Rfam assigns this 94-nucleotide RNA sequence to the family "skipping-rope RNA".
RNA sequence: GUUAUUUGAGGUGGGAAAGGUUCCCCACGCGCUGCCUUUGCAAUUAUUAUUGCUCGGGUAGUUACCAGAGAUCAGGAGUGCCGCCCUGCUUAAC
Number, nucleotide and partner (000 for none) at each position: 001g094002u093003u092004a091005u000006u000007u000008g089009a000010g000011g028012u027013g026014g025015g024016a000017a000018a000019g082020g081021u080022u000023c000024c015025c014026c013027a012028c011029g000030c068031g062032c061033u060034g059035c058036c057037u056038u000039u000040g000041c000042a000043a000044u000045u000046a000047u000048u000049a000050u000051u000052g000053c000054u000055c000056g037057g036058g035059u034060a033061g032062u031063u000064a000065c000066c000067a000068g030069a000070g000071a000072u000073c088074a087075g086076g085077a000078g000079u000080g021081c020082c019083g000084c000085c076086c075087u074088g073089c008090u000091u004092a003093a002094c001